[Rfam]
RNA sequence: UGAUAGCAAUGAUGUGUAAGGUUGCUGCGAUAAAAAGCAGGUUUUUACACGGAGCGAAUGUCAAGUCGAGAUACUGACGACAA
Number, nucleotide and partner (000 for none) at each position: 001u000002g000003a000004u000005a000006g000007c000008a000009a000010u000011g000012a000013u000014g050015u049016g048017u000018a046019a045020g044021g043022u000023u000024g000025c040026u039027g038028c037029g000030a000031u000032a000033a000034a000035a000036a000037g028038c027039a026040g025041g000042u000043u021044u020045u019046u018047a000048c016049a015050c014051g000052g000053a000054g000055c000056g000057a000058a000059u082060g081061u080062c079063a000064a000065g078066u077067c076068g075069a000070g000071a000072u000073a000074c000075u068076g067077a066078c065079g062080a061081c060082a059083a000